[Rfam]
Rfam assigns this 110-nucleotide sequence from Paenibacillus lentus to the family "TPP riboswitch aptamer (THI element)".
The source organism's lineage runs through Bacteria, Bacillati, Bacilli, Paenibacillaceae and Paenibacillus.
The base pairs follow the family's consensus structure, which is taken from published work.
Gene Ontology term of the family: thiamine pyrophosphate binding.
RNA sequence: AAUAUGGAGUGCGGGUGCUGGAUGAAGUCCGGCUGAGAUUGGAACCUGAUGUUCCUGACCGUUAAUCUGAUCCAGGUAAUGCUGGCGUAGAGAACAUAUCGAACCUUACC
Numbered sequence: 001a002a003u004a005u006g007g008a009g010u011g012c013g014g015g016u017g018c019u020g021g022a023u024g025a026a027g028u029c030c031g032g033c034u035g036a037g038a039u040u041g042g043a044a045c046c047u048g049a050u051g052u053u054c055c056u057g058a059c060c061g062u063u064a065a066u067c068u069g070a071u072c073c074a075g076g077u078a079a080u081g082c083u084g085g086c087g088u089a090g091a092g093a094a095c096a097u098a099u100c101g102a103a104c105c106u107u108a109c110c
Base pairs, nucleotide, nucleotide: 007097009095010094011062012061013060014059017033018032019031020030021029041055042054043053044052066091067090068089069088072085073084074083075082